The family of this 410-nucleotide part of an RNA from Perca fluviatilis is "Eukaryotic large subunit ribosomal RNA". The source organism's lineage runs through Eukaryota, Teleostomi, Neopterygii, Percinae and Perca.
RNA sequence: GAUGUGUUGUUGCAAUAGUAAUCCUGCUCGGUACGAGAGGAACCGCAGGUUCAGACAUUUGGUGUAUGUGCUUGGCUGAGGAGGCCAAUGGUGCGAAGCUACCAUCUGUGGGAUUAUGACUGAACGCCUCUAAGUCAGAAUCCCGCCUAGACGUAACGAUACCAUAGCGCCGCGGAUCUUCGGUUUGGCCCCGGAUAACCGGCCGGUCGGUGAAGUAGAGCCGUGUGACAGGGCUGGGGGUGCGGCCGGAUGAUGGUUCGCCCCUCUCCUAUCUCGCACCGCAUGUUUGUGGAGAACCUGGUGCUAAAUCACUGCAGACGACCUGAUUCUGGGUCAGGGGUUUCGAUGCGUAGCAGAGCAGCUCCCUCGCUGCGAUCUAUUGAAAGUCAGCCCUUGAUCCAAGCUUUUGU
Numbered sequence: 001g002a003u004g005u006g007u008u009g010u011u012g013c014a015a016u017a018g019u020a021a022u023c024c025u026g027c028u029c030g031g032u033a034c035g036a037g038a039g040g041a042a043c044c045g046c047a048g049g050u051u052c053a054g055a056c057a058u059u060u061g062g063u064g065u066a067u068g069u070g071c072u073u074g075g076c077u078g079a080g081g082a083g084g085c086c087a088a089u090g091g092u093g094c095g096a097a098g099c100u101a102c103c104a105u106c107u108g109u110g111g112g113a114u115u116a117u118g119a120c121u122g123a124a125c126g127c128c129u130c131u132a133a134g135u136c137a138g139a140a141u142c143c144c145g146c147c148u149a150g151a152c153g154u155a156a157c158g159a160u161a162c163c164a165u166a167g168c169g170c171c172g173c174g175g176a177u178c179u180u181c182g183g184u185u186u187g188g189c190c191c192c193g194g195a196u197a198a199c200c201g202g203c204c205g206g207u208c209g210g211u212g213a214a215g216u217a218g219a220g221c222c223g224u225g226u227g228a229c230a231g232g233g234c235u236g237g238g239g240g241u242g243c244g245g246c247c248g249g250a251u252g253a254u255g256g257u258u259c260g261c262c263c264c265u266c267u268c269c270u271a272u273c274u275c276g277c278a279c280c281g282c283a284u285g286u287u288u289g290u291g292g293a294g295a296a297c298c299u300g301g302u303g304c305u306a307a308a309u310c311a312c313u314g315c316a317g318a319c320g321a322c323c324u325g326a327u328u329c330u331g332g333g334u335c336a337g338g339g340g341u342u343u344c345g346a347u348g349c350g351u352a353g354c355a356g357a358g359c360a361g362c363u364c365c366c367u368c369g370c371u372g373c374g375a376u377c378u379a380u381u382g383a384a385a386g387u388c389a390g391c392c393c394u395u396g397a398u399c400c401a402a403g404c405u406u407u408u409g410u
Base pairs, nucleotide, nucleotide: 006160007159008158009157010156011155012154013153016149017148018147021051023049024048025047026046027045052108053107054106055105060101061100062099067095068094069093070092071091072088073087074086075085076084077083110144111143112142117137118136119135120134121133166305167304168303169302170301171300172299306408307407308406312325314322331400332399333398334397335396336395337393338392339391341386342385350380351379352378353377355376358373359372360371361370362369